[Rfam]
RNA sequence: GUCUUUCAAAACAACGAAAGCCCUUCCUCUCAUCCGUCCUUACGGUUCCUAGACCGCGCCAGUAUGAAUUGAAAACUCCAAACCAUA
Numbered sequence: 001g002u003c004u005u006u007c008a009a010a011a012c013a014a015c016g017a018a019a020g021c022c023c024u025u026c027c028u029c030u031c032a033u034c035c036g037u038c039c040u041u042a043c044g045g046u047u048c049c050u051a052g053a054c055c056g057c058g059c060c061a062g063u064a065u066g067a068a069u070u071g072a073a074a075a076c077u078c079c080a081a082a083c084c085a086u087a
Base pairs, nucleotide, nucleotide: 035066036065039062040061041058043056044055045054046053047052
RNA: BsrC